Annotation
This 143-nucleotide sequence from Caenimonas sedimenti belongs to the Rfam family "Group II catalytic intron D1-D4-7". Pairs were carried over by alignment from the consensus structure. Rfam links the family to the GO term Group II intron splicing. Taxonomically the source falls in Caenimonas (Bacteria, Pseudomonadati, Pseudomonadota, Betaproteobacteria). On this family, see Bonen and Vogel, Trends Genet 2001: "The ins and outs of group II introns". About the family: Group II introns are found in rRNA, tRNA and mRNA of organelles in fungi, plants and protists, and also in mRNA in bacteria. A search with the family's covariance model found it, with a score of 60 bits.
RNA sequence: CCGCGCUUGGAACAGCGCGUCCCCUUCCGCACGUGCUUCUGGAGUAAUCCGGGGGUGCGGAGCUGCGGAUAAACGUCCCGUGCGCGAGCACACAGACCAUGCGCAAGCAAGGUCGAUGGCCUGAACAAGACUGGCCAGAGACG
Number, nucleotide and partner (000 for none) at each position: 001c000002c019003g018004c017005g016006c015007u014008u000009g000010g000011a000012a000013c000014a007015g006016c005017g004018c003019g002020u000021c000022c000023c000024c000025u000026u000027c068028c067029g066030c065031a064032c059033g058034u057035g056036c055037u054038u053039c052040u051041g050042g049043a048044g000045u000046a000047a000048u043049c042050c041051g040052g039053g038054g037055g036056u035057g034058c033059g032060g000061a000062g000063c000064u031065g030066c029067g028068g027069a000070u000071a000072a000073a000074c000075g000076u000077c000078c000079c000080g093081u092082g091083c000084g089085c000086g000087a000088g000089c084090a000091c082092a081093c080094a000095g114096a113097c112098c000099a000100u000101g108102c107103g000104c000105a000106a000107g102108c101109a000110a000111g000112g097113u096114c095115g000116a000117u000118g136119g135120c134121c133122u000123g131124a000125a000126c000127a000128a000129g000130a000131c123132u000133g121134g120135c119136c118137a000138g000139a000140g000141a000142c000143g000